Source information:
Shown here is a 61-nucleotide RNA, a member of the family "L2-Alphaproteobacteria ribosomal protein leader". On this family, see Eckert and Weinberg, BMC Microbiol 2020: "Discovery of 20 novel ribosomal leader candidates in bacteria and archaea". It is annotated as a cis-regulatory leader.
RNA sequence: GGGUCCAGCGACCCCAAACACAGGCGGGACCACCCGCCUUUUAGCUAACGGAAGACAGAAA
Numbered sequence: 001g002g003g004u005c006c007a008g009c010g011a012c013c014c015c016a017a018a019c020a021c022a023g024g025c026g027g028g029a030c031c032a033c034c035c036g037c038c039u040u041u042u043a044g045c046u047a048a049c050g051g052a053a054g055a056c057a058g059a060a061a
Stems, first nucleotide, its partner, number of pairs: 001014005023038006